[Rfam]
Rfam assigns this 35-nucleotide sequence from Fulvivirga marina to the family "DUF805b RNA".
Nucleotides: 035
Stems, first nucleotide, its partner, number of pairs: 002021004010034003
Number, partner (000 for none) and nucleotide at each position: 001000a002021c003020a004019g005018c006000g007000g008000a009000u010034u011033c012032u013000g014000a015000a016000a017000a018005g019004c020003u021002g022000a023000a024000a025000u026000a027000g028000a029000g030000u031000a032012a033011g034010a035000a